[Rfam]
RNA sequence: UCUUUUUCGCAGCGGCAAUUUCAUAGUCUAUGAAGUUGUUCUGAGACGUGAUUAUUGCUGGUUGAAAACUUAACCCAAUACCCCGCCUGGAUGUCUUGAAAUAUAGUCACCUAUGGCAAUUUUUGUUAGUCUCAUGGGAGA
Numbered sequence: 001u002c003u004u005u006u007u008c009g010c011a012g013c014g015g016c017a018a019u020u021u022c023a024u025a026g027u028c029u030a031u032g033a034a035g036u037u038g039u040u041c042u043g044a045g046a047c048g049u050g051a052u053u054a055u056u057g058c059u060g061g062u063u064g065a066a067a068a069c070u071u072a073a074c075c076c077a078a079u080a081c082c083c084c085g086c087c088u089g090g091a092u093g094u095c096u097u098g099a100a101a102u103a104u105a106g107u108c109a110c111c112u113a114u115g116g117c118a119a120u121u122u123u124u125g126u127u128a129g130u131c132u133c134a135u136g137g138g139a140g141a
Stems, first nucleotide, its partner, number of pairs: 021051004026047003034042002085117003088113003092109002095106002130141004
This 141-nucleotide RNA sequence from Perca flavescens belongs to the Rfam family "U4 spliceosomal RNA". The family's consensus secondary structure is taken from published work. The literature on the family includes a 1997 paper in Nucleic Acids Res by Zwieb, "The uRNA database".